[Rfam]
RNA sequence: AACGUGCUCCGGGGUCGGUGAGAAUCCGAACCGGCGGUGACAGUCCGCGAGCCGCGACUUCCGUGCCACAUCGGCACCGUCGCGGUCGACCCGGUGGAAUUCCGGGACCGACGGUGAUGAGGCGCUCAGGCGUAUCUAGUCCGGAUGGGAGGAGGCACGCG
Numbered sequence: 001a002a003c004g005u006g007c008u009c010c011g012g013g014g015u016c017g018g019u020g021a022g023a024a025u026c027c028g029a030a031c032c033g034g035c036g037g038u039g040a041c042a043g044u045c046c047g048c049g050a051g052c053c054g055c056g057a058c059u060u061c062c063g064u065g066c067c068a069c070a071u072c073g074g075c076a077c078c079g080u081c082g083c084g085g086u087c088g089a090c091c092c093g094g095u096g097g098a099a100u101u102c103c104g105g106g107a108c109c110g111a112c113g114g115u116g117a118u119g120a121g122g123c124g125c126u127c128a129g130g131c132g133u134a135u136c137u138a139g140u141c142c143g144g145a146u147g148g149g150a151g152g153a154g155g156c157a158c159g160c161g
Stems, first nucleotide, its partner, number of pairs: 003159005008153003016028003032110002034048004043108002051086008090106005112143003